[Rfam]
RNA sequence: UGGGGGGGACGUCUCUGGAGCUCCCCCUCCCCACAGCCGCUAAGCUCCCUGGGACGGCCCAG
Numbered sequence: 001u002g003g004g005g006g007g008g009a010c011g012u013c014u015c016u017g018g019a020g021c022u023c024c025c026c027c028u029c030c031c032c033a034c035a036g037c038c039g040c041u042a043a044g045c046u047c048c049c050u051g052g053g054a055c056g057g058c059c060c061a062g
Base pairs, nucleotide, nucleotide: 001033002032003031004030005029006028007027008026049062050061051060052059053058